[Rfam]
RNA sequence: UUUGGGAAAUGAUGCCAAGAUUCAAACAGUUGAUCAGAGGCGCCAGCUAUGCUGCUUUAUAGAAAUUUUUUUUCUUUGCACGUCAGUCUGAUCCCAAA
Number, nucleotide and partner (000 for none) at each position: 001u098002u097003u096004g095005g094006g093007a092008a000009a000010u000011g000012a000013u000014g000015c000016c000017a000018a000019g000020a000021u000022u000023c000024a000025a000026a000027c000028a000029g000030u000031u000032g000033a000034u000035c000036a000037g000038a000039g000040g000041c000042g000043c000044c000045a000046g000047c000048u000049a000050u000051g000052c000053u000054g000055c000056u000057u000058u000059a000060u000061a000062g000063a000064a000065a000066u000067u000068u000069u000070u000071u000072u000073u000074c000075u000076u000077u000078g000079c000080a000081c000082g000083u000084c000085a000086g000087u000088c000089u000090g000091a000092u007093c006094c005095c004096a003097a002098a001
RNA: Small nucleolar RNA Z122